[Rfam]
RNA sequence: ACUGUGAAGAGUCAUACAAACUGUAGUAGCUAAGGCAAAACAGGACUCGUUGAAACAGUAA
Numbered sequence: 001a002c003u004g005u006g007a008a009g010a011g012u013c014a015u016a017c018a019a020a021c022u023g024u025a026g027u028a029g030c031u032a033a034g035g036c037a038a039a040a041c042a043g044g045a046c047u048c049g050u051u052g053a054a055a056c057a058g059u060a061a
Base pairs, nucleotide, nucleotide: 001059002058003057004056005055009048010047011046012045013044021043022042023041029036030035
Background
Rfam assigns this 61-nucleotide sequence from Gottschalkia purinilytica to the family "RAGATH-18 RNA". From the family's description: Actinobacteria, Firmicutes, Fusobacteria, Thermotogae (1 example). The base pairs follow the family's consensus structure, which is taken from published work. The match comes from Rfam's covariance-model search (65 bits). It is annotated as a small RNA.